[Rfam]
RNA: permuted transfer-messenger RNA
Organism: Rhodocyclaceae bacterium
RNA sequence: GGUCGUAAUUCCGGCAAACCGGAAGCAUUCUGGACGGCGGUUCGAUUCCGCCCACCUCCACCACGACGGGGGUGAUCUGGUCUCGACAGGGUGAAAGAAGGCGCGCAGGCGGCCCGAGAGGCGACGGACGUAAUCCGCGCAAAUCCAUAAUUGCCAAUGAUGAGCAAUUCGCAAUGGCCGCUUAA
Numbered sequence: 001g002g003u004c005g006u007a008a009u010u011c012c013g014g015c016a017a018a019c020c021g022g023a024a025g026c027a028u029u030c031u032g033g034a035c036g037g038c039g040g041u042u043c044g045a046u047u048c049c050g051c052c053c054a055c056c057u058c059c060a061c062c063a064c065g066a067c068g069g070g071g072g073u074g075a076u077c078u079g080g081u082c083u084c085g086a087c088a089g090g091g092u093g094a095a096a097g098a099a100g101g102c103g104c105g106c107a108g109g110c111g112g113c114c115c116g117a118g119a120g121g122c123g124a125c126g127g128a129c130g131u132a133a134u135c136c137g138c139g140c141a142a143a144u145c146c147a148u149a150a151u152u153g154c155c156a157a158u159g160a161u162g163a164g165c166a167a168u169u170c171g172c173a174a175u176g177g178c179c180g181c182u183u184a185a
Stems, first nucleotide, its partner, number of pairs: 001114005014104002026093003030089003036052005053074007115130002